The family of this 138-nucleotide RNA sequence from Microvirga thermotolerans is "Alphaproteobacterial sRNA BjrC1505". It scores 65 bits against the family's covariance model. NCBI's taxonomy places the organism under Bacteria, Pseudomonadota, Hyphomicrobiales, Methylobacteriaceae, Microvirga.
RNA sequence: GCCGGCGGUUAACCCGGCAUUAAGCCUUUCGGGCGAUCAUCGGCUCAUCCAGUUCUCUCCCUGGAUGAGAGAUGGUCCUCCCUCUCUCUCUGACGCCUCCCUGUCAGGACUCGAGCCGCCCCGGGCGGCUCAAUUUUU
Dot-bracket structure: ((((..(......).((...(...((....))...)))..))))...((((..........))))...((((.(......).)))).....((((......)))).....(.((((((((...)))))))).).....
Annotation:
The pairing is the family consensus, mapped onto this sequence.